[Rfam]
RNA: Actinomyces-1 RNA
Nucleotides: 109
Base pairs, nucleotide, nucleotide: 006103007102008101009100010099011098012097013059014058015057018055019053020052021051022050024048028041029040030039031038032037061094062093064091065090066089069086070085071084072083073082
Number, partner (000 for none) and nucleotide at each position: 001000c002000u003000u004000g005000c006103c007102g008101c009100c010099g011098g012097a013059c014058g015057g016000a017000a018055c019053g020052g021051g022050u023000c024048g025000c026000g027000a028041g029040g030039g031038u032037u033000g034000g035000g036000g037032a038031a039030c040029c041028c042000g043000a044000c045000g046000a047000c048024c049000u050022a051021c052020c053019c054000u055018g056000a057015c058014c059013g060000a061094g062093c063000a064091c065090u066089g067000u068000a069086c070085g071084g072083g073082u074000c075000c076000a077000a078000g079000g080000g081000a082073g083072c084071c085070c086069g087000c088000a089066c090065g091064g092000a093062g094061c095000g096000u097012u098011c099010c100009g101008g102007c103006g104000a105000a106000g107000g108000a109000g